[Rfam]
RNA sequence: CAUCUGUGACCGCUGAAUCCGCCCACGGGCGGAACCGGGGACCCACCGUACUUCCUUGGGGUGAAUUGGCACCGGCGUGCCAUAGGGCAGCUUCCACGCCCGAACCCGUCAGCUAACCCGGUAAGCGGUAUGGAAGCAAGGA
Numbered sequence: 001c002a003u004c005u006g007u008g009a010c011c012g013c014u015g016a017a018u019c020c021g022c023c024c025a026c027g028g029g030c031g032g033a034a035c036c037g038g039g040g041a042c043c044c045a046c047c048g049u050a051c052u053u054c055c056u057u058g059g060g061g062u063g064a065a066u067u068g069g070c071a072c073c074g075g076c077g078u079g080c081c082a083u084a085g086g087g088c089a090g091c092u093u094c095c096a097c098g099c100c101c102g103a104a105c106c107c108g109u110c111a112g113c114u115a116a117c118c119c120g121g122u123a124a125g126c127g128g129u130a131u132g133g134a135a136g137c138a139a140g141g142a
Base pairs, nucleotide, nucleotide: 011127012126013125014124018033019032020031021030022029034122035121036120037119038118039117044058045057059107060106061105067082068081069080070079085101086100087099088098
The record is a 142-nucleotide RNA from Nonomuraea polychroma, which matches "c-di-AMP riboswitch aptamer (ydaO/yuaA leader)" in Rfam. This family represents a conserved RNA structure found upstream of the ydaO and yuaA genes in Bacillus subtilis and related genes in other bacteria. The match comes from Rfam's covariance-model search (94 bits).